[Rfam]
RNA sequence: GGAGUCGGCUCGGCAGUCGCUAUCCCUUAGGGGGUGGAGGAAAGUCCGGGCUCCGCAGGGCAGAGCGCCAGGUAACGCCUGGGAAGUGUGAGCUUACGGAAAGUGCAGCAGAGAGUAGACCGCCUAAGCGCGCAAGCGCCGGUAAGGGUGAAAGGGUGCGGUAAGAGCGCACCGCGCGACUGGUAACAGCUCGCGGCAUGGUAAACCCCGCUCGGAGCAAGACCAAAUAGGAAUCCAUUGGUGUGGCCCGCACUGGAUUCGGGUAGGUUGCUUGAGGUGCGCGGCGACGCGCAUCCCAGAUGAAUGACUGUCCCAGACAGAACCCGGCUUACAGGCCGACUCCGAUU
Numbered sequence: 001g002g003a004g005u006c007g008g009c010u011c012g013g014c015a016g017u018c019g020c021u022a023u024c025c026c027u028u029a030g031g032g033g034g035u036g037g038a039g040g041a042a043a044g045u046c047c048g049g050g051c052u053c054c055g056c057a058g059g060g061c062a063g064a065g066c067g068c069c070a071g072g073u074a075a076c077g078c079c080u081g082g083g084a085a086g087u088g089u090g091a092g093c094u095u096a097c098g099g100a101a102a103g104u105g106c107a108g109c110a111g112a113g114a115g116u117a118g119a120c121c122g123c124c125u126a127a128g129c130g131c132g133c134a135a136g137c138g139c140c141g142g143u144a145a146g147g148g149u150g151a152a153a154g155g156g157u158g159c160g161g162u163a164a165g166a167g168c169g170c171a172c173c174g175c176g177c178g179a180c181u182g183g184u185a186a187c188a189g190c191u192c193g194c195g196g197c198a199u200g201g202u203a204a205a206c207c208c209c210g211c212u213c214g215g216a217g218c219a220a221g222a223c224c225a226a227a228u229a230g231g232a233a234u235c236c237a238u239u240g241g242u243g244u245g246g247c248c249c250g251c252a253c254u255g256g257a258u259u260c261g262g263g264u265a266g267g268u269u270g271c272u273u274g275a276g277g278u279g280c281g282c283g284g285c286g287a288c289g290c291g292c293a294u295c296c297c298a299g300a301u302g303a304a305u306g307a308c309u310g311u312c313c314c315a316g317a318c319a320g321a322a323c324c325c326g327g328c329u330u331a332c333a334g335g336c337c338g339a340c341u342c343c344g345a346u347u
Stems, first nucleotide, its partner, number of pairs: 001343010012312007020037007042330003046327005051217004058249004063213005068082005083097001084095004098208002103206002105202002120147002122143003128139004155173006174197001175195005180189003221269004231260006240254005276295008
Shown here is a 347-nucleotide RNA from Gilvimarinus sp. DA14, a member of the family "Bacterial RNase P class A". The base pairs follow the family's consensus structure, which is taken from published work. About the family: Ribonuclease P (RNase P) is a ubiquitous endoribonuclease, found in archaea, bacteria and eukarya as well as chloroplasts and mitochondria. NCBI's taxonomy places the organism under Bacteria, Pseudomonadati, Pseudomonadota, Cellvibrionales, Gilvimarinus.